[Rfam]
RNA sequence: GAAGGAGAAUUCCAAAGGGAUCGCAUUGAUCUCCCUUUUCCUCUUUGCCUUCUUUCUCCACCUAUGGUUUUAGGAGAUCAUGCGAUUCCUUCGGAAUUUUCCAU
Numbered sequence: 001g002a003a004g005g006a007g008a009a010u011u012c013c014a015a016a017g018g019g020a021u022c023g024c025a026u027u028g029a030u031c032u033c034c035c036u037u038u039u040c041c042u043c044u045u046u047g048c049c050u051u052c053u054u055u056c057u058c059c060a061c062c063u064a065u066g067g068u069u070u071u072a073g074g075a076g077a078u079c080a081u082g083c084g085a086u087u088c089c090u091u092c093g094g095a096a097u098u099u100u101c102c103a104u
Stems, first nucleotide, its partner, number of pairs: 002104001004102003008098006015091007023083004028079005036072001
Dot-bracket structure: .(.(((.((((((.(((((((.((((.(((((...(...................................)..))))))))).))))))).)))))).))).)
The record is a 104-nucleotide sequence from Musa balbisiana, which matches "mir-393 microRNA precursor family" in Rfam.
Taxonomically the source falls in Musa (Eukaryota, Viridiplantae, Streptophytina, commelinids).
Its family is annotated with miRNA-mediated post-transcriptional gene silencing and RISC complex in the Gene Ontology.